RNA sequence: UUGCACCUGAUACUGAUCCAGCGGUCCUCAGGCCAGGGUACACUGGUGACUGAGUUCCAUGGCUGUUGGGUUUUCUGGAAGGUGCCACACAAAUGUAUGCCCUGAUGUUUAAGCUCAUGGGUGUAAAGGUGCACUCUUGAGUUAUGGCUCAGAGGCACAUUG
Numbered sequence: 001u002u003g004c005a006c007c008u009g010a011u012a013c014u015g016a017u018c019c020a021g022c023g024g025u026c027c028u029c030a031g032g033c034c035a036g037g038g039u040a041c042a043c044u045g046g047u048g049a050c051u052g053a054g055u056u057c058c059a060u061g062g063c064u065g066u067u068g069g070g071u072u073u074u075c076u077g078g079a080a081g082g083u084g085c086c087a088c089a090c091a092a093a094u095g096u097a098u099g100c101c102c103u104g105a106u107g108u109u110u111a112a113g114c115u116c117a118u119g120g121g122u123g124u125a126a127a128g129g130u131g132c133a134c135u136c137u138u139g140a141g142u143u144a145u146g147g148c149u150c151a152g153a154g155g156c157a158c159a160u161u162g
Base pairs, nucleotide, nucleotide: 003085004084005083006082007081008080015072016071017070018069020067021066022065023064024063025062026061027054028053029052030051031050032047033046034045035044036043099156100155101154119134121132122131123130124129135153136152138151139150140149141148142147
Dot-bracket structure: ..((((((......((((.(((((((((((((((((......)))))..)))))......))))))).)))).......)))))).............(((.................(.((((....)))).)((.(((((....))))))))))......
Description
A member of the RNA family "Small Cajal body specific RNA 1" from Esox lucius, 162 nucleotides long. Gene Ontology terms of the family: Cajal body, RNA processing and nucleolus. A reference for the family is Darzacq et al. (2002), "Cajal body-specific small nuclear RNAs: a novel class of 2'-O-methylation and pseudouridylation guide RNAs", EMBO J. Rfam's curators write: scaRNAs are a specific class of small nuclear RNAs which localise to the Cajal bodies and guide the modification of RNA polymerase II transcribed spliceosomal RNAs U1, U2, U4, U5 and U12. A search with the family's covariance model found it, with a score of 64 bits.